A member of the RNA family "Bacterial RNase P class A" from Ruminiclostridium herbifermentans, 389 nucleotides long. Rfam classes the family as a ribozyme. The match comes from Rfam's covariance-model search (283 bits).

RNA sequence: UGAGUAAGCCAGAUGAUCGCAGAUACAGCUUGAAAAGGCGUAUAUGAGGAAAGUCCGGGCUCCAAAGGGCAAUGGUGCCGGGUAACUCCCGGUAAAGGCGACUUUAAGGAAAGUGCAACAGAAAUAUACCGCCAAGCUAGUUAUUUAAGUUGAGUAAAGUUUACUUUUUCAGUUUAAAUAUUUAUCUUGGUAAGGAUGGAAAGGCGAGGUAAGAGCUCACCAGCGACUUGGCGACUUGUCGGCUAUGUAAACCCCACCUGGAGCAACGCCGUGGAGGGACGCAAUGACUGCCCGUCAGUCCCGUGGAGGCGGCUUGAGUUAUACAGAAAUGUAUAGCCUAGAUAGAUGAUCAUCUAAUACAGAACCCGGCUUAUAGACUUACUCAACAU
Numbered sequence: 001u002g003a004g005u006a007a008g009c010c011a012g013a014u015g016a017u018c019g020c021a022g023a024u025a026c027a028g029c030u031u032g033a034a035a036a037g038g039c040g041u042a043u044a045u046g047a048g049g050a051a052a053g054u055c056c057g058g059g060c061u062c063c064a065a066a067g068g069g070c071a072a073u074g075g076u077g078c079c080g081g082g083u084a085a086c087u088c089c090c091g092g093u094a095a096a097g098g099c100g101a102c103u104u105u106a107a108g109g110a111a112a113g114u115g116c117a118a119c120a121g122a123a124a125u126a127u128a129c130c131g132c133c134a135a136g137c138u139a140g141u142u143a144u145u146u147a148a149g150u151u152g153a154g155u156a157a158a159g160u161u162u163a164c165u166u167u168u169u170c171a172g173u174u175u176a177a178a179u180a181u182u183u184a185u186c187u188u189g190g191u192a193a194g195g196a197u198g199g200a201a202a203g204g205c206g207a208g209g210u211a212a213g214a215g216c217u218c219a220c221c222a223g224c225g226a227c228u229u230g231g232c233g234a235c236u237u238g239u240c241g242g243c244u245a246u247g248u249a250a251a252c253c254c255c256a257c258c259u260g261g262a263g264c265a266a267c268g269c270c271g272u273g274g275a276g277g278g279a280c281g282c283a284a285u286g287a288c289u290g291c292c293c294g295u296c297a298g299u300c301c302c303g304u305g306g307a308g309g310c311g312g313c314u315u316g317a318g319u320u321a322u323a324c325a326g327a328a329a330u331g332u333a334u335a336g337c338c339u340a341g342a343u344a345g346a347u348g349a350u351c352a353u354c355u356a357a358u359a360c361a362g363a364a365c366c367c368g369g370c371u372u373a374u375a376g377a378c379u380u381a382c383u384c385a386a387c388a389u
Stems, first nucleotide, its partner, number of pairs: 001385008010376001011374001012354007020046002023043004051372003055369005060263004067293004074258004078092005093107001094105004108254002113252002115248003129195002131191006138184002203221002206218003223243001224241004230235001267311004276302005286296003318337008